[Rfam]
RNA sequence: CAUCGAUAAUGGCAAACUUAUUGAAAAAUAAGGACGCAAAGCUACGGGUCUAAAGCUUUAGUUUAGCAAUGACGGCCGGGUUUCCGAA
Numbered sequence: 001c002a003u004c005g006a007u008a009a010u011g012g013c014a015a016a017c018u019u020a021u022u023g024a025a026a027a028a029u030a031a032g033g034a035c036g037c038a039a040a041g042c043u044a045c046g047g048g049u050c051u052a053a054a055g056c057u058u059u060a061g062u063u064u065a066g067c068a069a070u071g072a073c074g075g076c077c078g079g080g081u082u083u084c085c086g087a088a
Stems, first nucleotide, its partner, number of pairs: 012037002017032006040082004045078003048073003055067003
The family of this 88-nucleotide RNA sequence from Bacillus sp. Y1 is "c-di-GMP-I riboswitch aptamer". Lineage of the source: Bacteria > Bacillota > Bacilli > Bacillaceae > Bacillus. The base pairs follow the family's consensus structure, which is taken from published work.